The family of this 121-nucleotide RNA from Pseudoxanthomonas indica is "Glycine riboswitch aptamer".
The organism belongs to Pseudoxanthomonas, within Bacteria.

[Rfam]
RNA sequence: UACAAACACUCUGGAGAGAUCGGCCACCGCGCAAGCGGGCGCGCCGGCGCCGAAGGGGCACGAAGCAGGCGACCUCGUCCGCCGCUUCCAAACUCUCAGGCAAAAGGACAGAGGGGCGCCC
Numbered sequence: 001u002a003c004a005a006a007c008a009c010u011c012u013g014g015a016g017a018g019a020u021c022g023g024c025c026a027c028c029g030c031g032c033a034a035g036c037g038g039g040c041g042c043g044c045c046g047g048c049g050c051c052g053a054a055g056g057g058g059c060a061c062g063a064a065g066c067a068g069g070c071g072a073c074c075u076c077g078u079c080c081g082c083c084g085c086u087u088c089c090a091a092a093c094u095c096u097c098a099g100g101c102a103a104a105a106g107g108a109c110a111g112a113g114g115g116g117c118g119c120c121c
Stems, first nucleotide, its partner, number of pairs: 007115001009113005020047004049101003052097002056095003062088005